RNA sequence: AAACAACCCCUAUGUAAUGAAUCUUUGACAGUUUUGACAUUCAAUUCCACUUUUGACUUAGUCUUCACUGACGUGACAUCCACAAUGAUCGACACGUGACACCUCACUUAAAGGAUGUGGGUGCCACGUCAGCGAAGACUAAGUCAAAGUGGCCUUGGGUGCCAAAACUGCCAACGAUCCAAUACAUAUAGACUGUUU
Numbered sequence: 001a002a003a004c005a006a007c008c009c010c011u012a013u014g015u016a017a018u019g020a021a022u023c024u025u026u027g028a029c030a031g032u033u034u035u036g037a038c039a040u041u042c043a044a045u046u047c048c049a050c051u052u053u054u055g056a057c058u059u060a061g062u063c064u065u066c067a068c069u070g071a072c073g074u075g076a077c078a079u080c081c082a083c084a085a086u087g088a089u090c091g092a093c094a095c096g097u098g099a100c101a102c103c104u105c106a107c108u109u110a111a112a113g114g115a116u117g118u119g120g121g122u123g124c125c126a127c128g129u130c131a132g133c134g135a136a137g138a139c140u141a142a143g144u145c146a147a148a149g150u151g152g153c154c155u156u157g158g159g160u161g162c163c164a165a166a167a168c169u170g171c172c173a174a175c176g177a178u179c180c181a182a183u184a185c186a187u188a189u190a191g192a193c194u195g196u197u198u
Stems, first nucleotide, its partner, number of pairs: 001198002004195002008191001011188006018181002021178003025174003029170008038161007071129002074126002077123005
MIR2619 microRNA precursor family: a 198-nucleotide RNA from Medicago truncatula. The source organism's lineage runs through Eukaryota, Spermatophyta, rosids, fabids and Medicago. The family's consensus secondary structure was predicted with RNAalifold. A search with the family's covariance model found it, with a score of 155 bits. Gene Ontology terms of the family: miRNA-mediated post-transcriptional gene silencing and RISC complex.